[Rfam]
This 60-nucleotide sequence from Salmo salar belongs to the Rfam family "mir-21 microRNA precursor family". Gene Ontology terms of the family: RISC complex and miRNA-mediated post-transcriptional gene silencing. Taxonomically the source falls in Salmo (Eukaryota, Craniata, Teleostomi, Clupeocephala).
RNA sequence: UAGCUUAUCAGACUGGUGUUGGCUGUUACAUUGCAAGGCGACAACAGUCUGUAGGCUGUC
Numbered sequence: 001u002a003g004c005u006u007a008u009c010a011g012a013c014u015g016g017u018g019u020u021g022g023c024u025g026u027u028a029c030a031u032u033g034c035a036a037g038g039c040g041a042c043a044a045c046a047g048u049c050u051g052u053a054g055g056c057u058g059u060c
Base pairs, nucleotide, nucleotide: 001058002057003056004055005054006053007052008051011049012048013047014046015045017043018042019041020040021039023037